The record is a 65-nucleotide sequence from Megalops atlanticus, which matches "MAT2A 3'UTR stem loop A" in Rfam. The base pairs follow the family's consensus structure, which is taken from published work. The organism belongs to Megalops, within Eukaryota. The match comes from Rfam's covariance-model search (71 bits). By type it is a cis-regulatory element.
RNA sequence: CUUUUUUUCCCCCAGGCCUGUUGGUGUAUACUACAGAGAAGCCUACAAGGUCUUAGGGGGAAAAG
Number, nucleotide and partner (000 for none) at each position: 001c065002u064003u063004u062005u000006u000007u000008u059009c058010c057011c056012c000013c000014a053015g052016g051017c000018c000019u047020g046021u000022u000023g043024g042025u041026g034027u033028a000029u000030a000031c000032u000033a027034c026035a000036g000037a000038g000039a000040a000041g025042c024043c023044u000045a000046c020047a019048a000049g000050g000051u016052c015053u014054u000055a000056g011057g010058g009059g008060g000061a000062a004063a003064a002065g001